[Rfam]
RNA sequence: AAACGCAUUAACACCGAGGAGCGUUCGGAUGGGCCCCUUUCUUUUGAGGGAUCAGCGUUUAGUUGUCUUCUCUCCGGCAAAGAAAGAUGCAAGCGCGGCGGUCGCUAG
Numbered sequence: 001a002a003a004c005g006c007a008u009u010a011a012c013a014c015c016g017a018g019g020a021g022c023g024u025u026c027g028g029a030u031g032g033g034c035c036c037c038u039u040u041c042u043u044u045u046g047a048g049g050g051a052u053c054a055g056c057g058u059u060u061a062g063u064u065g066u067c068u069u070c071u072c073u074c075c076g077g078c079a080a081a082g083a084a085a086g087a088u089g090c091a092a093g094c095g096c097g098g099c100g101g102u103c104g105c106u107a108g
Stems, first nucleotide, its partner, number of pairs: 012104001013102004019096001021094002046072005053065004
Rhizobiales sRNA Atu_Ti4: a 108-nucleotide RNA from Arminella tumorigenes. The base pairs follow the family's consensus structure, which was predicted with WAR. NCBI's taxonomy places the organism under Bacteria, Pseudomonadati, Pseudomonadota, Hyphomicrobiales, Arminella. A search with the family's covariance model found it, with a score of 86 bits.